[Rfam]
Shown here is a 76-nucleotide RNA from Cnephaeus nilssonii, a member of the family "mir-9229 microRNA precursor family".

Nucleotides: 076
Base pairs, nucleotide, nucleotide: 001075003073005071006070007069009067010066011065012064014062015061016060017059018058019057021056022055023054029053031051033049034048035047036046037044038043
Number, partner (000 for none) and nucleotide at each position: 001075g002000a003073g004000a005071c006070a007069c008000c009067c010066u011065u012064g013000u014062g015061g016060g017059g018058c019057a020000g021056g022055a023054c024000u025000u026000g027000c028000u029053u030000c031051a032000a033049u034048g035047g036046g037044g038043c039000u040000u041000u042000g043038g044037u045000g046036c047035u048034c049033a050000c051031u052000u053029a054023g055022u056021c057019u058018g059017c060016c061015c062014c063000c064012u065011g066010g067009g068000u069007g070006u071005g072000c073003c074000c075001u076000u
Lineage of the source: Eukaryota > Euteleostomi > Amniota > Boreoeutheria > Cnephaeus. Its family is annotated with miRNA-mediated post-transcriptional gene silencing and RISC complex in the Gene Ontology.